RNA sequence: CUAAUCUCUAACUGUAAGUCGCUCUGGAUAAAAGUGUCUGCUAAAUGACUCAAA
Numbered sequence: 001c002u003a004a005u006c007u008c009u010a011a012c013u014g015u016a017a018g019u020c021g022c023u024c025u026g027g028a029u030a031a032a033a034g035u036g037u038c039u040g041c042u043a044a045a046u047g048a049c050u051c052a053a054a
Stems, first nucleotide, its partner, number of pairs: 013043001014041003020036004025031001
A member of the RNA family "UnaL2 LINE 3' element" from Salmo trutta, 54 nucleotides long.
The organism belongs to Salmo, within Eukaryota.
The match comes from Rfam's covariance-model search (56 bits).
From the family's description: The eel long interspersed element (LINE) UnaL2 and its partner short interspersed element (SINE) share a conserved 3' tail containing a stem-loop that is critical for their retrotransposition.